[Rfam]
RNA: Guanidine-I riboswitch aptamer
Organism: Burkholderia vietnamiensis
RNA sequence: UCUUAGGGUCGCUAGGGUUCCGGUUCAUCGAACGUCUGGUCCGAGAGCAGCCCGGCGCGCGGGCGUCCGAUCACGAAAACGGACGCCCGCGCGCUACACGGCGGGACAAAAGCCCGGGAGAU
Numbered sequence: 001u002c003u004u005a006g007g008g009u010c011g012c013u014a015g016g017g018u019u020c021c022g023g024u025u026c027a028u029c030g031a032a033c034g035u036c037u038g039g040u041c042c043g044a045g046a047g048c049a050g051c052c053c054g055g056c057g058c059g060c061g062g063g064c065g066u067c068c069g070a071u072c073a074c075g076a077a078a079a080c081g082g083a084c085g086c087c088c089g090c091g092c093g094c095u096a097c098a099c100g101g102c103g104g105g106a107c108a109a110a111a112g113c114c115c116g117g118g119a120g121a122u
Base pairs, nucleotide, nucleotide: 007052008051009050011048012047015042016041020039021038022036023033024032025031026030054095055094056093057092058091059090060089061088062087063086064085065084066083067082068081069080097117099120103115104114105113